Shown here is a 115-nucleotide sequence from Cucumis melo, a member of the family "MIR828 microRNA precursor family".
A search with the family's covariance model found it, with a score of 80 bits.
Taxonomically the source falls in Cucumis (Eukaryota, Streptophyta, Magnoliopsida, rosids).
RNA sequence: GCAAUGUUUCUUGCUCAAAUGAGUAUUCCAAGUCGCACCAGCAAAUGUCAAAAUGCAAACUAAUGCAUAUUUUGGUGCUUGUUUUUGCCAUGCUAAUUUGAGUAAGAAAUGUUGC
Numbered sequence: 001g002c003a004a005u006g007u008u009u010c011u012u013g014c015u016c017a018a019a020u021g022a023g024u025a026u027u028c029c030a031a032g033u034c035g036c037a038c039c040a041g042c043a044a045a046u047g048u049c050a051a052a053a054u055g056c057a058a059a060c061u062a063a064u065g066c067a068u069a070u071u072u073u074g075g076u077g078c079u080u081g082u083u084u085u086u087g088c089c090a091u092g093c094u095a096a097u098u099u100g101a102g103u104a105a106g107a108a109a110u111g112u113u114g115c
Stems, first nucleotide, its partner, number of pairs: 004112005010106011022094005029087002